[Rfam]
RNA sequence: CUUACCGAGAGCUCUUUGGCAUUCUGUCCACCUCCUUGCGAGUCUCGCGGGAGAUCUCAUGAUCUGUUGUUGAGCUUGCAGAUAGCUUGGAGGUGGGCAUACUGCCAAUGGAGCUGUGUAGG
Numbered sequence: 001c002u003u004a005c006c007g008a009g010a011g012c013u014c015u016u017u018g019g020c021a022u023u024c025u026g027u028c029c030a031c032c033u034c035c036u037u038g039c040g041a042g043u044c045u046c047g048c049g050g051g052a053g054a055u056c057u058c059a060u061g062a063u064c065u066g067u068u069g070u071u072g073a074g075c076u077u078g079c080a081g082a083u084a085g086c087u088u089g090g091a092g093g094u095g096g097g098c099a100u101a102c103u104g105c106c107a108a109u110g111g112a113g114c115u116g117u118g119u120a121g122g
Stems, first nucleotide, its partner, number of pairs: 013112001016108006025099011
MIR394 microRNA precursor family: a 122-nucleotide sequence from Brachypodium distachyon. Its family is annotated with RISC complex and miRNA-mediated post-transcriptional gene silencing in the Gene Ontology.